Shown here is a 297-nucleotide RNA from Candidatus Parvarchaeum acidophilus, a member of the family "Archaeal RNase P". For this family Rfam cites "The Ribonuclease P Database" (Brown, Nucleic Acids Res, 1999). It scores 118 bits against the family's covariance model. From the family's description: Ribonuclease P (RNase P) is a ubiquitous endoribonuclease, found in archaea, bacteria and eukarya as well as chloroplasts and mitochondria. Its best characterised activity is the generation of mature 5'-ends of tRNAs by cleaving the 5'-leader elements of precursor-tRNAs. Clan: RNaseP clan.
RNA sequence: GCGGUAUUGUAUACAACAGACCAUUAACUUUUAAUAAGUUGAUGGAGGAAGUCCGUUCACCUUUAAAACUGAAGUGCAGUAAUGCAUUGCUGUAAAAGGCAGGCAACUGAGCAGAAACGAUACCUGUUUUCAGUGCAAAGAGAUGAUGCGAAAGCUGAUUGCUGAAAAUAGGAUGAAACGGCAGACCUUCAUGGUGCAAACCGGUAUUCCGGCGCUUAGUCGAAUGUUGUUGCAUCCAACUGAGAAGCCUUUGAACAAAGGCAGAGGGAUGACAAAAAACGGGCUAUUCAAUACCGC
Numbered sequence: 001g002c003g004g005u006a007u008u009g010u011a012u013a014c015a016a017c018a019g020a021c022c023a024u025u026a027a028c029u030u031u032u033a034a035u036a037a038g039u040u041g042a043u044g045g046a047g048g049a050a051g052u053c054c055g056u057u058c059a060c061c062u063u064u065a066a067a068a069c070u071g072a073a074g075u076g077c078a079g080u081a082a083u084g085c086a087u088u089g090c091u092g093u094a095a096a097a098g099g100c101a102g103g104c105a106a107c108u109g110a111g112c113a114g115a116a117a118c119g120a121u122a123c124c125u126g127u128u129u130u131c132a133g134u135g136c137a138a139a140g141a142g143a144u145g146a147u148g149c150g151a152a153a154g155c156u157g158a159u160u161g162c163u164g165a166a167a168a169u170a171g172g173a174u175g176a177a178a179c180g181g182c183a184g185a186c187c188u189u190c191a192u193g194g195u196g197c198a199a200a201c202c203g204g205u206a207u208u209c210c211g212g213c214g215c216u217u218a219g220u221c222g223a224a225u226g227u228u229g230u231u232g233c234a235u236c237c238a239a240c241u242g243a244g245a246a247g248c249c250u251u252u253g254a255a256c257a258a259a260g261g262c263a264g265a266g267g268g269a270u271g272a273c274a275a276a277a278a279a280c281g282g283g284c285u286a287u288u289c290a291a292u293a294c295c296g297c
Stems, first nucleotide, its partner, number of pairs: 001297003005293005011287001013230005021045010053282005058196004070191004074087005088101004102187002107184003123172011148155002201212003